[Rfam]
RNA sequence: ACGGCUCAUUCGCUGGGGAGUAGCCGGCUUUCCUUCUGGGAAAGCGCCUAUGUCAACAUACUCGGUCGCAAAGACCGUGGCAUAGGUAGCCAUUAAUAGGUUGGCAAGACCAUCGACAUAUCGGCGCAACCGGUCGGGUGCGUCGACAUGUCGUUAUGUCUUGCCCGACCUGAGC
Numbered sequence: 001a002c003g004g005c006u007c008a009u010u011c012g013c014u015g016g017g018g019a020g021u022a023g024c025c026g027g028c029u030u031u032c033c034u035u036c037u038g039g040g041a042a043a044g045c046g047c048c049u050a051u052g053u054c055a056a057c058a059u060a061c062u063c064g065g066u067c068g069c070a071a072a073g074a075c076c077g078u079g080g081c082a083u084a085g086g087u088a089g090c091c092a093u094u095a096a097u098a099g100g101u102u103g104g105c106a107a108g109a110c111c112a113u114c115g116a117c118a119u120a121u122c123g124g125c126g127c128a129a130c131c132g133g134u135c136g137g138g139u140g141c142g143u144c145g146a147c148a149u150g151u152c153g154u155u156a157u158g159u160c161u162u163g164c165c166c167g168a169c170c171u172g173a174g175c
Stems, first nucleotide, its partner, number of pairs: 028044003046087010063077005
This 175-nucleotide RNA from Pararobbsia alpina belongs to the Rfam family "Manganese Mn2+ riboswitch aptamer (yybP-ykoY)". The source organism's lineage runs through Bacteria, Pseudomonadati, Betaproteobacteria, Burkholderiaceae and Pararobbsia. This RNA was originally discovered in E. coli during a large scale screen and was named SraF. The family was later found to exist upstream of related families of protein genes in many bacteria, including the the yybP and ykoK genes in B. subtilis. The specific functions of these proteins are unknown, but this structured RNA element may be involved in their genetic regulation as a riboswitch.